[Rfam]
RNA sequence: AUUUCCAGAUCGCUUAAUCUCCAUUCGGAGAGCGGGGGAACCGAUACAGCGCUACGCUAACCCACAGCGGACACGUUGUAAUUGAAUUCUUCUUGGGGUGAAUUAUCGUGACGACCCACAACUAGGGUCCGAGCGAAAUAGGGCAACUCUCAUGCCCGAACCCGACAGCUAACCUCGUAAGCGUACAUAGAGAGGUCGU
Numbered sequence: 001a002u003u004u005c006c007a008g009a010u011c012g013c014u015u016a017a018u019c020u021c022c023a024u025u026c027g028g029a030g031a032g033c034g035g036g037g038g039a040a041c042c043g044a045u046a047c048a049g050c051g052c053u054a055c056g057c058u059a060a061c062c063c064a065c066a067g068c069g070g071a072c073a074c075g076u077u078g079u080a081a082u083u084g085a086a087u088u089c090u091u092c093u094u095g096g097g098g099u100g101a102a103u104u105a106u107c108g109u110g111a112c113g114a115c116c117c118a119c120a121a122c123u124a125g126g127g128u129c130c131g132a133g134c135g136a137a138a139u140a141g142g143g144c145a146a147c148u149c150u151c152a153u154g155c156c157c158g159a160a161c162c163c164g165a166c167a168g169c170u171a172a173c174c175u176c177g178u179a180a181g182c183g184u185a186c187a188u189a190g191a192g193a194g195g196u197c198g199u
Base pairs, nucleotide, nucleotide: 011183012182013181014180018031019030020029032178033177034176035175036174037173042095043094096163097162098161104138106136107135108134109133141157142156143155144154
The record is a 199-nucleotide RNA from Paenibacillus darwinianus, which matches "c-di-AMP riboswitch aptamer (ydaO/yuaA leader)" in Rfam. The source organism's lineage runs through Bacteria, Bacillota, Bacilli, Paenibacillaceae and Paenibacillus. Rfam describes the family as follows. This family represents a conserved RNA structure found upstream of the ydaO and yuaA genes in Bacillus subtilis and related genes in other bacteria. The ydaO/yuaA element is thought to act as a genetic 'off' switch for the ydaO and yuaA genes in its native state.